The record is a 109-nucleotide RNA from Phaeobacter piscinae, which matches "L2-Alphaproteobacteria ribosomal protein leader" in Rfam. The sequence is in the family's curated seed alignment. The family's RNA type in Rfam is cis-regulatory leader.

RNA sequence: GGCCACCCUAGUAGGGCGUCUCAUCUUGGGACAACCGGGCGGGGGGCUUACACAUAGCUGGACCGAAGACAAAAACCUAAGGUCUGGCACGCUAAACGGAAGACAGAAA
Numbered sequence: 001g002g003c004c005a006c007c008c009u010a011g012u013a014g015g016g017c018g019u020c021u022c023a024u025c026u027u028g029g030g031a032c033a034a035c036c037g038g039g040c041g042g043g044g045g046g047c048u049u050a051c052a053c054a055u056a057g058c059u060g061g062a063c064c065g066a067a068g069a070c071a072a073a074a075a076c077c078u079a080a081g082g083u084c085u086g087g088c089a090c091g092c093u094a095a096a097c098g099g100a101a102g103a104c105a106g107a108a109a
Base pairs, nucleotide, nucleotide: 001048002047003046004045006044007043008042057088058087059086060085061084062083063082